[Rfam]
RNA sequence: UACAAAGAGCGCAAGGGGAAUGCCUUGGCACCAGGAGCCGAAGAAGGACGCGAUUAACUGCGAUAAGCCACGGGGAGCCGUAAGUAGGCAUUGAGCCGUGGAUUUCCGAAUGGAGCAAUCCGGCUGGAGUUAUGUCCAGUCAUCAUAGGGUGAAUACAUAGCCCUAUGAGGGGAACCGCCUGAACUGAAACAUCUAAGUAGGGCGAGGAAGAGAAAUCAACCGAGAUUCCGCUAGUAGUGGCGAGCGAACGCGGAAGAGGCCAAACCAGGGGUAGUAAUACCGCUGGGGUUUGGACAGCGAUGUGUAUCACGAAACCUAGCCGAACAGCAUGGGAAGGCUGACAAGACAGUGUGAGAGUCACGUAGGCGAAAGGGGAAAUGAGCUAGCUGUAUCCAGAGUACCGCCGGGCACGUGGAACCCGGUGGGAAUACGGGGGGACCACCCUCCAAGCCUAAAUACUACCUGGUGACCGAUAGAGUAUAGUACUGUGAAGGAAAGGUGAAAAGAACCCCGGGAGGGGAGUGAAAGAGAACCUGAAACCUUGUGCUUACAAG
Number, nucleotide and partner (000 for none) at each position: 001u000002a000003c000004a000005a000006a000007g550008a549009g548010c547011g546012c545013a544014a543015g542016g541017g000018g000019a000020a000021u000022g535023c500024c499025u000026u000027g472028g471029c469030a468031c467032c466033a465034g464035g463036a461037g460038c172039c171040g000041a000042a000043g000044a000045a000046g107047g106048a105049c062050g061051c060052g000053a000054u000055u000056a000057a000058c000059u000060g051061c050062g049063a000064u000065a000066a000067g000068c101069c100070a099071c098072g097073g096074g000075g000076a000077g089078c088079c087080g000081u000082a000083a000084g000085u000086a000087g079088g078089c077090a000091u000092u000093g000094a000095g000096c073097c072098g071099u070100g069101g068102a000103u000104u000105u048106c047107c046108g000109a000110a000111u000112g121113g120114a119115g000116c000117a000118a000119u114120c113121c112122g141123g140124c139125u138126g137127g136128a135129g000130u000131u000132a000133u000134g000135u128136c127137c126138a125139g124140u123141c122142a000143u169144c168145a167146u166147a165148g164149g163150g162151u161152g000153a000154a000155u000156a000157c000158a000159u000160a000161g151162c150163c149164c148165u147166a146167u145168g144169a143170g000171g039172g038173g000174a000175a000176c207177c205178g204179c203180c202181u201182g000183a000184a000185c000186u000187g194188a193189a000190a000191c000192a000193u188194c187195u000196a000197a000198g000199u000200a000201g181202g180203g179204c178205g177206a000207g176208g000209a000210a000211g000212a000213g000214a000215a000216a000217u224218c223219a000220a000221c000222c000223g218224a217225g000226a000227u457228u255229c254230c253231g252232c251233u000234a000235g000236u000237a000238g246239u245240g000241g000242c000243g000244a000245g239246c238247g000248a000249a000250c000251g232252c231253g230254g229255a228256a000257g000258a454259g453260g452261c451262c000263a000264a000265a000266c287267c286268a285269g284270g000271g282272g281273u000274a000275g000276u000277a000278a000279u000280a000281c272282c271283g000284c269285u268286g267287g266288g000289g000290u000291u000292u396293g395294g394295a000296c390297a389298g388299c387300g000301a000302u000303g000304u000305g000306u000307a000308u382309c381310a380311c000312g000313a000314a000315a000316c374317c373318u372319a000320g368321c367322c366323g000324a000325a000326c341327a340328g339329c338330a000331u000332g000333g000334g000335a000336a000337g000338g329339c328340u327341g326342a000343c000344a000345a000346g000347a000348c000349a000350g362351u361352g360353u000354g000355a000356g000357a000358g000359u000360c352361a351362c350363g000364u000365a000366g322367g321368c320369g000370a000371a000372a318373g317374g316375g000376g000377a000378a000379a000380u310381g309382a308383g000384c000385u000386a000387g299388c298389u297390g296391u000392a000393u000394c294395c293396a292397g000398a000399g000400u000401a000402c426403c425404g424405c423406c422407g421408g420409g419410c000411a000412c000413g000414u000415g000416g000417a000418a000419c409420c408421c407422g406423g405424u404425g403426g402427g000428a000429a000430u000431a000432c000433g448434g447435g446436g445437g444438g000439a000440c000441c000442a000443c000444c437445c436446u435447c434448c433449a000450a000451g261452c260453c259454u258455a000456a000457a227458u000459a000460c037461u036462a000463c035464c034465u033466g032467g031468u030469g029470a000471c028472c027473g000474a000475u000476a000477g000478a000479g000480u000481a000482u000483a000484g000485u000486a000487c494488u493489g000490u000491g000492a000493a488494g487495g000496a000497a000498a000499g024500g023501u000502g000503a000504a000505a000506a000507g000508a000509a000510c521511c520512c519513c518514g000515g000516g000517a000518g513519g512520g511521g510522a000523g000524u000525g000526a000527a000528a000529g000530a000531g000532a000533a000534c000535c022536u000537g000538a000539a000540a000541c016542c015543u014544u013545g012546u011547g010548c009549u008550u007551a000552c000553a000554a000555g000
RNA: Bacterial large subunit ribosomal RNA, nucleotides 9 to 563